This 141-nucleotide RNA sequence from Pseudoalteromonas sp. NBT06-2 belongs to the Rfam family "Ribosomal S15 leader". Clan: Ribosomal Protein S15 Leader clan. About the family: The E. coli Ribosomal S15 gene 5' UTR can form two alternative structures. For this family Rfam cites "Pseudoknot and translational control in the expression of the S15 ribosomal protein" (Benard et al., Biochimie, 1996). A search with the family's covariance model found it, with a score of 76 bits.
RNA sequence: CGUUUUUGCUGAAUUAGUGAUCGGCUUAAGCACCUUAAGUACUCUUUUUAUAAAGAGUCUAAAUUUUAAAUAUUGGAGUUACACAUGUCACUAAGUACUCAAGAAACUGCUGAAAUCAUUGCUAAAUUUGCACGCGCUGAA
Dot-bracket structure: .......(((((........))))).....................(((.........................((.(..........).)))))..............................................